[Rfam]
RNA: Ribosomal protein L20 leader
RNA sequence: AAUGGCAAGUAGAAGCACCCGCUUCUCACCUGAUUGACACGGUAUUGUAGUUGACAGGUAGUUCCGAAUGUAUGUUUAUUAACGGAUAAAUGUGUGGGUGCAGCGUAUGUACCCGCACUUUUUUUAUUUU
Numbered sequence: 001a002a003u004g005g006c007a008a009g010u011a012g013a014a015g016c017a018c019c020c021g022c023u024u025c026u027c028a029c030c031u032g033a034u035u036g037a038c039a040c041g042g043u044a045u046u047g048u049a050g051u052u053g054a055c056a057g058g059u060a061g062u063u064c065c066g067a068a069u070g071u072a073u074g075u076u077u078a079u080u081a082a083c084g085g086a087u088a089a090a091u092g093u094g095u096g097g098g099u100g101c102a103g104c105g106u107a108u109g110u111a112c113c114c115g116c117a118c119u120u121u122u123u124u125u126a127u128u129u130u
Stems, first nucleotide, its partner, number of pairs: 011026006028059003036052003039048002093117010
Dot-bracket structure: ..........((((((....)))))).(((.....(((((......)).)))....))).................................((((((((((.....)))))))))).............